Rfam assigns this 160-nucleotide sequence to the family "DUF2693 RNA".

[Rfam]
RNA sequence: GCUCUUUGACAUACUUGAUACAAGGCGACAAUAGAAUAACUCACGCAGGUGCAAUGCCUGCAUAGUGAUUAACAAUACCGCUUGCAGGCUUAGACCUAUCGUGCUAAGCACUGAACGGCUAACGACCGACCCCUGGACAUCGCAACGUCCCUGCAGGCAC
Numbered sequence: 001g002c003u004c005u006u007u008g009a010c011a012u013a014c015u016u017g018a019u020a021c022a023a024g025g026c027g028a029c030a031a032u033a034g035a036a037u038a039a040c041u042c043a044c045g046c047a048g049g050u051g052c053a054a055u056g057c058c059u060g061c062a063u064a065g066u067g068a069u070u071a072a073c074a075a076u077a078c079c080g081c082u083u084g085c086a087g088g089c090u091u092a093g094a095c096c097u098a099u100c101g102u103g104c105u106a107a108g109c110a111c112u113g114a115a116c117g118g119c120u121a122a123c124g125a126c127c128g129a130c131c132c133c134u135g136g137a138c139a140u141c142g143c144a145a146c147g148u149c150c151c152u153g154c155a156g157g158c159a160c
Stems, first nucleotide, its partner, number of pairs: 045061005080158008088109006116128003135150004

Rfam's curators put it in the seed alignment. The family's consensus secondary structure is taken from published work.